Shown here is a 91-nucleotide sequence from Cavia porcellus, a member of the family "mir-146 microRNA precursor family". The family has 33 seed sequences and 1,617 matches in Rfam 15.1.
[Rfam]
RNA sequence: CUGGCCAUCUGGCUUUAAGAACUGAAUUCUGUAGGCUGUGAGCUCCAGCAAAUGCCUUAGGGACUCAGUUCUGGAAACCUGGCUGUGCUGC
Numbered sequence: 001c002u003g004g005c006c007a008u009c010u011g012g013c014u015u016u017a018a019g020a021a022c023u024g025a026a027u028u029c030u031g032u033a034g035g036c037u038g039u040g041a042g043c044u045c046c047a048g049c050a051a052a053u054g055c056c057u058u059a060g061g062g063a064c065u066c067a068g069u070u071c072u073g074g075a076a077a078c079c080u081g082g083c084u085g086u087g088c089u090g091c
Base pairs, nucleotide, nucleotide: 008082009081011079012078018072019071020070021069022068023067024066025065033057034056035055036054